[Rfam]
The family of this 137-nucleotide sequence from Takifugu rubripes is "Small nucleolar RNA SNORA57". Rfam 15.1 lists 1,736 matches to the family in 530 species. Pairs were carried over by alignment from the consensus structure, which was predicted with PFOLD. About the family: U99 belongs to the H/ACA class of snoRNAs which are thought to guide the sites of modification of uridines to pseudouridines, the target for this family is unknown. Gene Ontology terms of the family: nucleolus and RNA processing.
RNA sequence: CCUCUAUUUCUUGGCAUGCAUGAGUUGUUCAGUACUCAGGCGUGUAAUGUACGGAGGAAAAUGAAGUGCAGUGCUAUGUCUUCGGUGCCGGUGCGUUUUCAGGUCUGCCGGUUCUAUCCUCAAUCACUGUGACAUUA
Numbered sequence: 001c002c003u004c005u006a007u008u009u010c011u012u013g014g015c016a017u018g019c020a021u022g023a024g025u026u027g028u029u030c031a032g033u034a035c036u037c038a039g040g041c042g043u044g045u046a047a048u049g050u051a052c053g054g055a056g057g058a059a060a061a062u063g064a065a066g067u068g069c070a071g072u073g074c075u076a077u078g079u080c081u082u083c084g085g086u087g088c089c090g091g092u093g094c095g096u097u098u099u100c101a102g103g104u105c106u107g108c109c110g111g112u113u114c115u116a117u118c119c120u121c122a123a124u125c126a127c128u129g130u131g132a133c134a135u136u137a
Stems, first nucleotide, its partner, number of pairs: 001057005015044005022037004069129005088111003093108003